[Rfam]
RNA sequence: UCUCACUCUGCAUAGUUAUUUACAUUAGGUUUCACCCGUGUGAAUUUCGUACCGGUAGAGAGAGAAAUAAGUUCCUCAAAUACCUUUGAUUGGCAUCACAGUGGCCUCUCUUUCCUAGAGGAGCACCACAGGU
Numbered sequence: 001u002c003u004c005a006c007u008c009u010g011c012a013u014a015g016u017u018a019u020u021u022a023c024a025u026u027a028g029g030u031u032u033c034a035c036c037c038g039u040g041u042g043a044a045u046u047u048c049g050u051a052c053c054g055g056u057a058g059a060g061a062g063a064g065a066a067a068u069a070a071g072u073u074c075c076u077c078a079a080a081u082a083c084c085u086u087u088g089a090u091u092g093g094c095a096u097c098a099c100a101g102u103g104g105c106c107u108c109u110c111u112u113u114c115c116u117a118g119a120g121g122a123g124c125a126c127c128a129c130a131g132g133u
Stems, first nucleotide, its partner, number of pairs: 001061004008055003018045008072123005079116001088110002092106003
Dot-bracket structure: ((((...(((.......((((((((............)))))))).......)))..))))..........(((((..(........((..(((.........)))..)).....)..)))))..........